[Rfam]
RNA sequence: GGUUGGAUGGCAAAAUUGCUAUUUUCAAGAGAGUCAGGCUUCUAGGGUGGGGAGCU
Numbered sequence: 001g002g003u004u005g006g007a008u009g010g011c012a013a014a015a016u017u018g019c020u021a022u023u024u025u026c027a028a029g030a031g032a033g034u035c036a037g038g039c040u041u042c043u044a045g046g047g048u049g050g051g052g053a054g055c056u
Base pairs, nucleotide, nucleotide: 003028004027005026006023007022008021009020010019011018037056038055039054040053041052042051043050

A member of the RNA family "Na+ riboswitch aptamer (DUF1646)" from Acetivibrio cellulolyticus, 56 nucleotides long. It is one of the family's seed sequences. On this family, see White et al., Nat Chem Biol 2022: "Na(+) riboswitches regulate genes for diverse physiological processes in bacteria". Its family is annotated with regulation of gene expression and sodium ion binding in the Gene Ontology. The family's consensus secondary structure is taken from published work.